[Rfam]
RNA sequence: AGAGAUUGAGUUCAAGGCCACAGCAGAAGCGAUUAUGGUGUAGCCAUAUCAGAUUCCAAUGAAUUUACAAAUUCUGCU
Numbered sequence: 001a002g003a004g005a006u007u008g009a010g011u012u013c014a015a016g017g018c019c020a021c022a023g024c025a026g027a028a029g030c031g032a033u034u035a036u037g038g039u040g041u042a043g044c045c046a047u048a049u050c051a052g053a054u055u056c057c058a059a060u061g062a063a064u065u066u067a068c069a070a071a072u073u074c075u076g077c078u
Stems, first nucleotide, its partner, number of pairs: 016045003022078007029041003051066006